[Rfam]
RNA sequence: AAUGAAUAUAGGCAAAGUUGUCGAAAGGCAAUGACGCAAAACUAGUAGGGCCUAAUCGAGGGAAUGGCAGCCAGUUGUAAUU
Numbered sequence: 001a002a003u004g005a006a007u008a009u010a011g012g013c014a015a016a017g018u019u020g021u022c023g024a025a026a027g028g029c030a031a032u033g034a035c036g037c038a039a040a041a042c043u044a045g046u047a048g049g050g051c052c053u054a055a056u057c058g059a060g061g062g063a064a065u066g067g068c069a070g071c072c073a074g075u076u077g078u079a080a081u082u
Base pairs, nucleotide, nucleotide: 012037013036017032018031019030020029021028022027040076041075042074043073048072049071050068051067052066057062
Shown here is an 82-nucleotide RNA from Hespellia stercorisuis, a member of the family "c-di-GMP-I riboswitch aptamer". A search with the family's covariance model found it, with a score of 56 bits. GEMM was predicted in a large-scale screen for bacterial structured RNA regulatory elements. Its family is annotated with cyclic-di-GMP binding in the Gene Ontology. Lineage of the source: Bacteria > Bacillati > Lachnospirales > Hespellia > Hespellia stercorisuis.